Shown here is a 352-nucleotide RNA from Immersiella caudata, a member of the family "Nuclear RNase P". Lineage of the source: Eukaryota > Fungi > Pezizomycotina > leotiomyceta > Immersiella. About the family: Ribonuclease P (RNase P) is a ubiquitous endoribonuclease, found in archaea, bacteria and eukarya as well as chloroplasts and mitochondria.
[Rfam]
RNA sequence: UCCACUUCAACGCUGCGUUUCUAUGCUACGUACGGAGAGUCUGCGCAAGCAGUCUUUCAAUCUAGCAUAUGAGAAAUUCGGAGAAAUCGCUUCACUACCAGCUCGCCCGUCUCGCCUCGUACGCGGCGGUGUCGACGCUCUGCCGGUGACGGCCUGGCGCCACCUUGCGUCUGCUAUUGGCAUCAGAAAAGCAGGGCCUGGGCUGGACCUCGCUCUGCGGGUGUCCCAGUGCCAGGUUCCUCUGGGAGAGUCAUAGCGAAGCUUGUGAGCAACUUUAGUGCAAUACGCAGCGUGGUGCUUUCUCAGCUUGCUGAGAGGCGCUACAAUUCGAUUCCGAUUACUCUGUUGUGGA
Numbered sequence: 001u002c003c004a005c006u007u008c009a010a011c012g013c014u015g016c017g018u019u020u021c022u023a024u025g026c027u028a029c030g031u032a033c034g035g036a037g038a039g040u041c042u043g044c045g046c047a048a049g050c051a052g053u054c055u056u057u058c059a060a061u062c063u064a065g066c067a068u069a070u071g072a073g074a075a076a077u078u079c080g081g082a083g084a085a086a087u088c089g090c091u092u093c094a095c096u097a098c099c100a101g102c103u104c105g106c107c108c109g110u111c112u113c114g115c116c117u118c119g120u121a122c123g124c125g126g127c128g129g130u131g132u133c134g135a136c137g138c139u140c141u142g143c144c145g146g147u148g149a150c151g152g153c154c155u156g157g158c159g160c161c162a163c164c165u166u167g168c169g170u171c172u173g174c175u176a177u178u179g180g181c182a183u184c185a186g187a188a189a190a191g192c193a194g195g196g197c198c199u200g201g202g203c204u205g206g207a208c209c210u211c212g213c214u215c216u217g218c219g220g221g222u223g224u225c226c227c228a229g230u231g232c233c234a235g236g237u238u239c240c241u242c243u244g245g246g247a248g249a250g251u252c253a254u255a256g257c258g259a260a261g262c263u264u265g266u267g268a269g270c271a272a273c274u275u276u277a278g279u280g281c282a283a284u285a286c287g288c289a290g291c292g293u294g295g296u297g298c299u300u301u302c303u304c305a306g307c308u309u310g311c312u313g314a315g316a317g318g319c320g321c322u323a324c325a326a327u328u329c330g331a332u333u334c335c336g337a338u339u340a341c342u343c344u345g346u347u348g349u350g351g352a
Stems, first nucleotide, its partner, number of pairs: 001352004008345002012291007022069004035058005079336005090261004142153004156171005173257004179252003193241003292324010